[Rfam]
This 56-nucleotide RNA sequence from Virgisporangium aliadipatigenens belongs to the Rfam family "msiK RNA".

RNA sequence: AGGACCCGCCUUUACUCGGAUCGUCCGGCACGUUCCUGCCGGUGAAGGAGAGUCGC
Numbered sequence: 001a002g003g004a005c006c007c008g009c010c011u012u013u014a015c016u017c018g019g020a021u022c023g024u025c026c027g028g029c030a031c032g033u034u035c036c037u038g039c040c041g042g043u044g045a046a047g048g049a050g051a052g053u054c055g056c
Stems, first nucleotide, its partner, number of pairs: 009048006025042006
Rfam classes the family as a cis-regulatory element.